[Rfam]
RNA sequence: AAACGUUACAGCUUCCCGAUAGGAUUUAUCUGUACGGAUAAAGAUGCCUUGUAACCGAUUCAUUAAGGGGGAAUAGAAAAAUG
Numbered sequence: 001a002a003a004c005g006u007u008a009c010a011g012c013u014u015c016c017c018g019a020u021a022g023g024a025u026u027u028a029u030c031u032g033u034a035c036g037g038a039u040a041a042a043g044a045u046g047c048c049u050u051g052u053a054a055c056c057g058a059u060u061c062a063u064u065a066a067g068g069g070g071g072a073a074u075a076g077a078a079a080a081a082u083g
Base pairs, nucleotide, nucleotide: 013073014072015071016070017069021049022048023047025042026041027040028039029038055068056067

The record is an 83-nucleotide sequence from Catellicoccus marimammalium, which matches "SAM-III riboswitch aptamer (SMK box)" in Rfam. Its family is annotated with methionine adenosyltransferase activity and regulation of translational initiation in the Gene Ontology. The base pairs follow the family's consensus structure, which is taken from published work.